[Rfam]
Background
The record is a 103-nucleotide sequence from Vibrio navarrensis, which matches "Tryptophan operon leader" in Rfam. Taxonomically the source falls in Vibrio (Bacteria, Pseudomonadati, Gammaproteobacteria, Vibrionaceae). It scores 64 bits against the family's covariance model. Pairs were carried over by alignment from the consensus structure, which is taken from published work. Rfam classes the family as a cis-regulatory leader.
RNA sequence: UUGGCUUGGUGGCGCAUCUGGACAAGUUCUUGGUGGGCAAACGUGUACUUUUAAUUCAGGACACUCAUGAUACGAAGCCCGCCUAAACAGCGGGCUUUUUGUU
Dot-bracket structure: ........((....((((.(((.....))).)))).....)).................................(((((((.......))))))).......